RNA sequence: CGUCUCCUGUAGGGGUUUCUUUCGGCCUUCAGCUGUGUAGACUGUAGGCCGGCGGAAACUACUUGCAGGUGGCG
Numbered sequence: 001c002g003u004c005u006c007c008u009g010u011a012g013g014g015g016u017u018u019c020u021u022u023c024g025g026c027c028u029u030c031a032g033c034u035g036u037g038u039a040g041a042c043u044g045u046a047g048g049c050c051g052g053c054g055g056a057a058a059c060u061a062c063u064u065g066c067a068g069g070u071g072g073c074g
Stems, first nucleotide, its partner, number of pairs: 006069003010065004014060007022052007030044003
This 74-nucleotide sequence from Pieris brassicae belongs to the Rfam family "mir-2796 microRNA precursor family". The family has 6 seed sequences and 119 matches in Rfam 15.1. The source organism's lineage runs through Eukaryota, Altocrustacea, Ditrysia, Pieridae and Pieris.